[Rfam]
RNA sequence: CCUGAUGCAGGGGCCUGUUGCCGUUUAAUGUGAACGGGUCUCUCGUAAACUUCAGGGAAAUAAAACUUGGCAUUGUUAUUGGGUGAACCUCUUGAGCUUCAUGAUCGACGGUUCAGUAAACGAUGAUACAUUC
Numbered sequence: 001c002c003u004g005a006u007g008c009a010g011g012g013g014c015c016u017g018u019u020g021c022c023g024u025u026u027a028a029u030g031u032g033a034a035c036g037g038g039u040c041u042c043u044c045g046u047a048a049a050c051u052u053c054a055g056g057g058a059a060a061u062a063a064a065a066c067u068u069g070g071c072a073u074u075g076u077u078a079u080u081g082g083g084u085g086a087a088c089c090u091c092u093u094g095a096g097c098u099u100c101a102u103g104a105u106c107g108a109c110g111g112u113u114c115a116g117u118a119a120a121c122g123a124u125g126a127u128a129c130a131u132u133c
Base pairs, nucleotide, nucleotide: 005052007050011041012040014038015037016036017035018034019033069127071125072124073123074122075121076120077119084115085114086113087112088111089110
RNA: Small nucleolar RNA snoR74